[Rfam]
RNA sequence: CGGUGAGGUAGAGGCGCAAAUAGGAUUAGUAGUCAAUAGGAGAAUGACACCUGUGAUUAUUGACGAAAGGACUGUUUGCCGAAGUGUAAGAAGAGUCAAGCUUCUUAUUGCUGGUAUAGUUUUGAAGAAAGGCUAUACUGUCAUGUUCAUGAUUGUGCAUGGAGGACUACUGAUCGU
Numbered sequence: 001c002g003g004u005g006a007g008g009u010a011g012a013g014g015c016g017c018a019a020a021u022a023g024g025a026u027u028a029g030u031a032g033u034c035a036a037u038a039g040g041a042g043a044a045u046g047a048c049a050c051c052u053g054u055g056a057u058u059a060u061u062g063a064c065g066a067a068a069g070g071a072c073u074g075u076u077u078g079c080c081g082a083a084g085u086g087u088a089a090g091a092a093g094a095g096u097c098a099a100g101c102u103u104c105u106u107a108u109u110g111c112u113g114g115u116a117u118a119g120u121u122u123u124g125a126a127g128a129a130a131g132g133c134u135a136u137a138c139u140g141u142c143a144u145g146u147u148c149a150u151g152a153u154u155g156u157g158c159a160u161g162g163a164g165g166a167c168u169a170c171u172g173a174u175c176g177u
Base pairs, nucleotide, nucleotide: 007171008170009169010168011167016079017078018077019076020075021074022073023072032064033063034062035061036060037059038058039057083112084111085110086109087107088106089105090104091103092102093101113139114138115137116136117135118134119133120132121131122130123129141162142161143160144159145158146157